RNA: RAGATH-18 RNA
RNA sequence: CUCAUGGAGUGUCAUACAAACUGCGGUAGCGAGCAAGUAGCGAAACAGGGCACGUAGAAAUGAGAA
Numbered sequence: 001c002u003c004a005u006g007g008a009g010u011g012u013c014a015u016a017c018a019a020a021c022u023g024c025g026g027u028a029g030c031g032a033g034c035a036a037g038u039a040g041c042g043a044a045a046c047a048g049g050g051c052a053c054g055u056a057g058a059a060a061u062g063a064g065a066a
Stems, first nucleotide, its partner, number of pairs: 001064005009053005021048003029041002033038001